[Rfam]
Shown here is a 159-nucleotide RNA from Myotis lucifugus, a member of the family "Small Cajal body specific RNA 1". The literature on the family includes a 2002 paper in EMBO J by Darzacq et al., "Cajal body-specific small nuclear RNAs: a novel class of 2'-O-methylation and pseudouridylation guide RNAs". Pairs were carried over by alignment from the consensus structure, which was predicted with RNAalifold. Rfam links the family to the GO terms Cajal body, RNA processing and nucleolus. It is annotated as a small Cajal body RNA. Lineage of the source: Eukaryota > Eumetazoa > Boreoeutheria > Chiroptera > Myotis.
RNA sequence: CAGCACUUGAUACUAACUGAGCUGUCUGUGUCCUAGCCUUGUGUCGCAGGCGUGCGCUGUGUGCUGAUAACUAGAUUGAACAAGUGCCGUAGUAAAGCAAAACCCUGAGUCUCUAAGCCCAGUGUGUAAGACACUGAGUUAUAAAUCGGUGGCAUACCU
Numbered sequence: 001c002a003g004c005a006c007u008u009g010a011u012a013c014u015a016a017c018u019g020a021g022c023u024g025u026c027u028g029u030g031u032c033c034u035a036g037c038c039u040u041g042u043g044u045c046g047c048a049g050g051c052g053u054g055c056g057c058u059g060u061g062u063g064c065u066g067a068u069a070a071c072u073a074g075a076u077u078g079a080a081c082a083a084g085u086g087c088c089g090u091a092g093u094a095a096a097g098c099a100a101a102a103c104c105c106u107g108a109g110u111c112u113c114u115a116a117g118c119c120c121a122g123u124g125u126g127u128a129a130g131a132c133a134c135u136g137a138g139u140u141a142u143a144a145a146u147c148g149g150u151g152g153c154a155u156a157c158c159u
Stems, first nucleotide, its partner, number of pairs: 003087006015077002018074001020072002023069004027061004032056001033054001036051004103152002122132002125129001133150005139144001
The sequence is in the family's curated seed alignment.